[Rfam]
RNA sequence: AACACACUACCUUAGAUCCGCUUCUGGGGUAUUCUGUCAUCUAAUGUGUAUUCAAGGCAUAUGUAAUCAUGCUGUUCUUUGUUGGCAGUAUCACACUCUGUUCCUUUCAACAGAGUAGGACCUCCCUUCAAAGAGAUGCAGUAGGUUUGCAAGUGUUCUUGGGUCACAUUGUUGAGCUUUACCCAGCAACACUUUGUGUUGUGUGCCAUUGGAAGUGCUUGAGUCAUUGGUGUGUAACAGAAAUAUACCUCCAGAGUGGUCUUAAUAGUUCAUUGGUAGCUGCUACAGCUGAUCCAUCCUUUGAUCGUAGACCUUUGUGGGGACAAU
Numbered sequence: 001a002a003c004a005c006a007c008u009a010c011c012u013u014a015g016a017u018c019c020g021c022u023u024c025u026g027g028g029g030u031a032u033u034c035u036g037u038c039a040u041c042u043a044a045u046g047u048g049u050a051u052u053c054a055a056g057g058c059a060u061a062u063g064u065a066a067u068c069a070u071g072c073u074g075u076u077c078u079u080u081g082u083u084g085g086c087a088g089u090a091u092c093a094c095a096c097u098c099u100g101u102u103c104c105u106u107u108c109a110a111c112a113g114a115g116u117a118g119g120a121c122c123u124c125c126c127u128u129c130a131a132a133g134a135g136a137u138g139c140a141g142u143a144g145g146u147u148u149g150c151a152a153g154u155g156u157u158c159u160u161g162g163g164u165c166a167c168a169u170u171g172u173u174g175a176g177c178u179u180u181a182c183c184c185a186g187c188a189a190c191a192c193u194u195u196g197u198g199u200u201g202u203g204u205g206c207c208a209u210u211g212g213a214a215g216u217g218c219u220u221g222a223g224u225c226a227u228u229g230g231u232g233u234g235u236a237a238c239a240g241a242a243a244u245a246u247a248c249c250u251c252c253a254g255a256g257u258g259g260u261c262u263u264a265a266u267a268g269u270u271c272a273u274u275g276g277u278a279g280c281u282g283c284u285a286c287a288g289c290u291g292a293u294c295c296a297u298c299c300u301u302u303g304a305u306c307g308u309a310g311a312c313c314u315u316u317g318u319g320g321g322g323a324c325a326a327u
Stems, first nucleotide, its partner, number of pairs: 002235007011223005019217008027184005037175003045168004050164001053161005186204001187201005249322005256315001258313004268306001270304003275299001279298001282289002
Overview: A member of the RNA family "Small nucleolar RNA SNORA53" from Apostichopus japonicus, 327 nucleotides long. A search with the family's covariance model found it, with a score of 77 bits.